[Rfam]
RNA sequence: AAACAGCCCCCUAUGUUUUGAUUCUUUGGCAGUUUUGGACCCCCAGUCCAUUGUUGACCCCAGUCCAUUUUUUUUUUUUUUUUUGCCUUGGGGGUCCAAAACUGCCAAAGAAUCAAAACAUAGGGGGCUGUUU
Numbered sequence: 001a002a003a004c005a006g007c008c009c010c011c012u013a014u015g016u017u018u019u020g021a022u023u024c025u026u027u028g029g030c031a032g033u034u035u036u037g038g039a040c041c042c043c044c045a046g047u048c049c050a051u052u053g054u055u056g057a058c059c060c061c062a063g064u065c066c067a068u069u070u071u072u073u074u075u076u077u078u079u080u081u082u083u084u085g086c087c088u089u090g091g092g093g094g095u096c097c098a099a100a101a102c103u104g105c106c107a108a109a110g111a112a113u114c115a116a117a118a119c120a121u122a123g124g125g126g127g128c129u130g131u132u133u
Base pairs, nucleotide, nucleotide: 001133002132004130005129006128007127008126012122013121014120015119016118017117018116019115020114021113022112023111024110025109026108027107028106029105030104031103032102033101034100035099036098037097038096039095040094041093042092043091044090045089
RNA: MIR2619 microRNA precursor family
Organism: Medicago truncatula